Rfam assigns this 135-nucleotide RNA from Cervus hanglu to the family "Small nucleolar RNA SNORA43".

[Rfam]
RNA sequence: GAUGCUAGACUUGCCAGCACCACGGGUGCGGCUGCCCUGCUGCGCCCAUGCUGUUGGGGCAGAGAGGAAGCGGCUAUUUCUACGCUCAGUGCUCAGAAUGGUGGGCACUUAAGAAUGGUUUGUAGCCGGACAACA
Numbered sequence: 001g002a003u004g005c006u007a008g009a010c011u012u013g014c015c016a017g018c019a020c021c022a023c024g025g026g027u028g029c030g031g032c033u034g035c036c037c038u039g040c041u042g043c044g045c046c047c048a049u050g051c052u053g054u055u056g057g058g059g060c061a062g063a064g065a066g067g068a069a070g071c072g073g074c075u076a077u078u079u080c081u082a083c084g085c086u087c088a089g090u091g092c093u094c095a096g097a098a099u100g101g102u103g104g105g106c107a108c109u110u111a112a113g114a115a116u117g118g119u120u121u122g123u124a125g126c127c128g129g130a131c132a133a134c135a
Stems, first nucleotide, its partner, number of pairs: 003061002005057004022049001024047002072127003080118003085113002090107006
By type it is an H/ACA-box small nucleolar RNA. Gene Ontology terms of the family: nucleolus and RNA processing.